[Rfam]
RNA sequence: GGGAAAUGCUAAGGGGGUUUGGGGAAGGAGCAACCCAAGACCCUGAAAUUUCAAGGCUCC
Numbered sequence: 001g002g003g004a005a006a007u008g009c010u011a012a013g014g015g016g017g018u019u020u021g022g023g024g025a026a027g028g029a030g031c032a033a034c035c036c037a038a039g040a041c042c043c044u045g046a047a048a049u050u051u052c053a054a055g056g057c058u059c060c
Stems, first nucleotide, its partner, number of pairs: 014044007022036003028059004

Rfam assigns this 60-nucleotide RNA sequence from Mauremys mutica to the family "Ma3 gene ribosomal frameshift signal". Rfam 15.1 lists 565 matches to the family in 155 species. By type it is a frameshift element. Rfam links the family to the GO term translational frameshifting.